Rfam assigns this 132-nucleotide RNA from Buceros rhinoceros to the family "Small nucleolar RNA SNORA55".
[Rfam]
RNA sequence: CCACCUGAGUCUUUCCUGUCCUGGCAGUGCAGUACAGGUCUGGGGACAGCUGGUGCUACAGCACAGCAGCGGAAAUCCAGAUGGGCUGUUUUCCAGUGGUUUAGAGCUCAUCUCUACACCUCUGCGACACUG
Number, nucleotide and partner (000 for none) at each position: 001c000002c055003a054004c053005c052006u000007g000008a000009g000010u000011c000012u000013u046014u045015c044016c043017u042018g041019u000020c038021c037022u000023g000024g000025c000026a000027g000028u000029g000030c000031a000032g000033u000034a000035c000036a000037g021038g020039u000040c000041u018042g017043g016044g015045g014046a013047c000048a000049g000050c000051u000052g005053g004054u003055g002056c000057u000058a000059c000060a000061g000062c000063a000064c000065a000066g125067c124068a123069g122070c000071g120072g000073a000074a000075a000076u000077c000078c000079a113080g112081a111082u110083g109084g108085g107086c106087u000088g000089u000090u000091u000092u000093c104094c000095a102096g000097u000098g000099g000100u000101u000102u095103a000104g093105a000106g086107c085108u084109c083110a082111u081112c080113u079114c000115u000116a000117c000118a000119c000120c071121u000122c069123u068124g067125c066126g000127a000128c000129a000130c000131u000132g000

The family has 29 seed sequences and 1,476 matches in Rfam 15.1.
The base pairs follow the family's consensus structure, which was predicted with PFOLD.
Its family is annotated with nucleolus and RNA processing in the Gene Ontology.
ACA55 is a member of the H/ACA class of snoRNA that guide the sites of modification of uridines to pseudouridines.